Notes
The family of this 51-nucleotide RNA is "chrB-b RNA". It is one of the family's seed sequences. By type it is a cis-regulatory element.
RNA sequence: UGGGGACUUCGCAGCCUCCCCAUUAAAUGGGUCCUCCCAUUCAAGCGCUGC
Numbered sequence: 001u002g003g004g005g006a007c008u009u010c011g012c013a014g015c016c017u018c019c020c021c022a023u024u025a026a027a028u029g030g031g032u033c034c035u036c037c038c039a040u041u042c043a044a045g046c047g048c049u050g051c
Stems, first nucleotide, its partner, number of pairs: 001022006011051005026041005